The record is a 65-nucleotide RNA sequence from Acidocella aminolytica, which matches "Fluoride riboswitch aptamer (crcB RNA motif)" in Rfam. A search with the family's covariance model found it, with a score of 55 bits. Rfam links the family to the GO terms positive regulation of gene expression and response to fluoride. The family's consensus secondary structure is taken from published work.

RNA sequence: CAGGCAGACGGGGAUGGAGUCCCCCAAAACCGCUCCUUCGGGGAGCUGAUGACUCCUGCAGGCGU
Numbered sequence: 001c002a003g004g005c006a007g008a009c010g011g012g013g014a015u016g017g018a019g020u021c022c023c024c025c026a027a028a029a030c031c032g033c034u035c036c037u038u039c040g041g042g043g044a045g046c047u048g049a050u051g052a053c054u055c056c057u058g059c060a061g062g063c064g065u
Stems, first nucleotide, its partner, number of pairs: 010025004016056006032046004